[Rfam]
A member of the RNA family "Xanthomonadaceae sRNA sX15" from Luteimonas marina, 162 nucleotides long. A search with the family's covariance model found it, with a score of 55 bits. The family's RNA type in Rfam is small RNA. The literature on the family includes a 2011 paper in Nucleic Acids Res by Schmidtke et al., "Genome-wide transcriptome analysis of the plant pathogen Xanthomonas identifies sRNAs with putative virulence functions".

RNA sequence: GGAGAGAGCCGCCUCGUUCCUGCCCACGCUUGUGAAGUUCGAGCUCAGGCUCGUUCAACUGUUCGGGCUAUGGCGCGAGGUCGAUGUGCGGCGGCCCUGGCUCCUACACGUGCUCGGAACACUGCGGCCUGUCGGCCUGCCGCACAUCGCUCUCCACUCCAA
Numbered sequence: 001g002g003a004g005a006g007a008g009c010c011g012c013c014u015c016g017u018u019c020c021u022g023c024c025c026a027c028g029c030u031u032g033u034g035a036a037g038u039u040c041g042a043g044c045u046c047a048g049g050c051u052c053g054u055u056c057a058a059c060u061g062u063u064c065g066g067g068c069u070a071u072g073g074c075g076c077g078a079g080g081u082c083g084a085u086g087u088g089c090g091g092c093g094g095c096c097c098u099g100g101c102u103c104c105u106a107c108a109c110g111u112g113c114u115c116g117g118a119a120c121a122c123u124g125c126g127g128c129c130u131g132u133c134g135g136c137c138u139g140c141c142g143c144a145c146a147u148c149g150c151u152c153u154c155c156a157c158u159c160c161a162a
Base pairs, nucleotide, nucleotide: 001155002154003153004152005151006150013079014078015077016076017075019067020066021065022064025061026060036055037054041052042051043050044049083148084147085146086145087144088143089142090141091140092139093137094136095135096134110122111121112120